[Rfam]
RNA sequence: UCUACAUCACCUUGCAGAUGAGACCCUAUCAAUGUUGCCUCUGCUUUCACUAGAGUUAACAGAGUAGUGCAAUAUUGCUUAUAGGGUCUUGACUCUGAGGGAUG
Numbered sequence: 001u002c003u004a005c006a007u008c009a010c011c012u013u014g015c016a017g018a019u020g021a022g023a024c025c026c027u028a029u030c031a032a033u034g035u036u037g038c039c040u041c042u043g044c045u046u047u048c049a050c051u052a053g054a055g056u057u058a059a060c061a062g063a064g065u066a067g068u069g070c071a072a073u074a075u076u077g078c079u080u081a082u083a084g085g086g087u088c089u090u091g092a093c094u095c096u097g098a099g100g101g102a103u104g
Stems, first nucleotide, its partner, number of pairs: 020090010030077009041067004045062001
Rfam assigns this 104-nucleotide RNA sequence from Larimichthys crocea to the family "mir-454 microRNA precursor family". Taxonomically the source falls in Larimichthys (Eukaryota, Craniata, Neoteleostei, Eurypterygia). Its family is annotated with miRNA-mediated post-transcriptional gene silencing and RISC complex in the Gene Ontology. The match comes from Rfam's covariance-model search (78 bits).